[Rfam]
RNA sequence: GACUAUUAAUGACGUCUUUACACUAAAUCCGUUGGAUGUGUAAAGAUUGAUACUUUAGUC
Numbered sequence: 001g002a003c004u005a006u007u008a009a010u011g012a013c014g015u016c017u018u019u020a021c022a023c024u025a026a027a028u029c030c031g032u033u034g035g036a037u038g039u040g041u042a043a044a045g046a047u048u049g050a051u052a053c054u055u056u057a058g059u060c
Stems, first nucleotide, its partner, number of pairs: 001060005014047010028036003
Rfam assigns this 60-nucleotide sequence from Mytilus coruscus to the family "Selenocysteine insertion sequence 1". Rfam describes the family as follows. The incorporation of selenocysteine into a protein sequence is directed by an in-frame UGA codon (usually a stop codon) within the coding region of the mRNA. Selenoprotein mRNAs contain a conserved secondary structure in the 3' UTR that is required for the distinction of UGA stop from UGA selenocysteine. A search with the family's covariance model found it, with a score of 38 bits. The family has 61 seed sequences and 3,793 matches in Rfam 15.1.